[Rfam]
RNA sequence: GCCCUGCAUUAAGAGUUGGAACUUCCAUGCCAACCUGCUGUUGUACAGUAAGGUGGACGGUUUAACAAACCGAUGUGGCUUUGGGUUUUUAUCCCAAGCAAUCCAAACCCGCUUAA
Numbered sequence: 001g002c003c004c005u006g007c008a009u010u011a012a013g014a015g016u017u018g019g020a021a022c023u024u025c026c027a028u029g030c031c032a033a034c035c036u037g038c039u040g041u042u043g044u045a046c047a048g049u050a051a052g053g054u055g056g057a058c059g060g061u062u063u064a065a066c067a068a069a070c071c072g073a074u075g076u077g078g079c080u081u082u083g084g085g086u087u088u089u090u091a092u093c094c095c096a097a098g099c100a101a102u103c104c105a106a107a108c109c110c111g112c113u114u115a116a
Stems, first nucleotide, its partner, number of pairs: 006076005015028001017027004030056002034053003037049003042111002078099004

Background
A member of the RNA family "SAM-I/IV (S-adenosyl methionine) riboswitch aptamer" from Kingella kingae, 116 nucleotides long. The family is grouped with related families in Rfam's "SAM clan". The source organism's lineage runs through Bacteria, Pseudomonadati, Pseudomonadota, Neisseriaceae and Kingella kingae. Pairs were carried over by alignment from the consensus structure, which is taken from published work. On this family, see Weinberg et al., RNA 2008: "The aptamer core of SAM-IV riboswitches mimics the ligand-binding site of SAM-I riboswitches".